[Rfam]
RNA sequence: GUAGCCUACCAGUUUCUUACUGCUCUACUCUGCAAAGCAAGAGAUUAAGAACCCAUCAUGGAUCCUGUGUACGUGGACAUAGACGCUGACAGCGCCUUUUUGAAGGCCCUGCAACGUGCGUACCCCAUGUUUGAGGUGGAACCUAGGCAGGUCACACCGAAUGACCAUGCUAAUGCUAGAGCGUUCUCGCAUCUAGCUAUAAAACUAAUAGAGCAGGAAAUUGAUCCCGACUCAACCAUCCUGGAUAUUGGUAGUGCGCCAGCAAGGAGGAU
Number, nucleotide and partner (000 for none) at each position: 001g000002u000003a000004g000005c267006c266007u265008a000009c000010c000011a000012g000013u000014u000015u000016c000017u000018u000019a000020c000021u000022g000023c000024u000025c000026u000027a000028c000029u000030c000031u000032g000033c000034a000035a000036a000037g000038c000039a000040a000041g000042a000043g000044a000045u000046u000047a000048a000049g000050a000051a137052c136053c135054c133055a000056u000057c000058a000059u000060g124061g123062a000063u122064c000065c120066u000067g000068u000069g000070u000071a000072c000073g000074u000075g000076g000077a000078c000079a000080u000081a000082g000083a000084c000085g000086c000087u000088g000089a000090c000091a110092g109093c000094g000095c000096c000097u000098u000099u000100u106101u000102g000103a000104a000105g000106g100107c000108c000109c092110u091111g000112c000113a000114a000115c000116g000117u000118g000119c000120g065121u000122a063123c061124c060125c000126c000127a000128u000129g000130u000131u000132u000133g054134a000135g053136g052137u051138g000139g000140a000141a000142c000143c000144u000145a000146g171147g170148c169149a168150g166151g165152u164153c163154a162155c000156a000157c000158c000159g000160a000161a000162u154163g153164a152165c151166c150167a000168u149169g148170c147171u146172a000173a000174u000175g197176c196177u195178a194179g193180a192181g190182c189183g000184u000185u000186c000187u000188c000189g182190c181191a000192u180193c179194u178195a177196g176197c175198u000199a000200u000201a000202a000203a000204a000205c000206u000207a000208a239209u238210a000211g236212a000213g000214c000215a000216g000217g000218a000219a000220a000221u000222u000223g000224a000225u000226c000227c000228c000229g000230a000231c000232u000233c000234a000235a000236c211237c000238a209239u208240c000241c000242u000243g000244g000245a000246u000247a000248u000249u000250g000251g000252u000253a000254g000255u000256g000257c000258g000259c000260c000261a000262g000263c000264a000265a007266g006267g005268a000269g000270g000271a000272u000
A member of the RNA family "Togavirus 5' plus strand cis-regulatory element" from Alphavirus chikungunya, 272 nucleotides long. This family represents a Togavirus virus 5' plus strand cis-regulatory element which is thought to be essential for both plus and minus strand RNA synthesis.Genus Alphaviruse belongs to the Togaviridae family. Alpha viruses contain secondary structural motifs in the 5' UTR that allow them to avoid detection by IFIT1. A reference for the family is Frolov et al. (2001), "Cis-acting RNA elements at the 5' end of Sindbis virus genome RNA regulate minus- and plus-strand RNA synthesis", RNA. A search with the family's covariance model found it, with a score of 155 bits. Its family is annotated with RNA biosynthetic process and viral process in the Gene Ontology. Pairs were carried over by alignment from the consensus structure, which was predicted with PFOLD.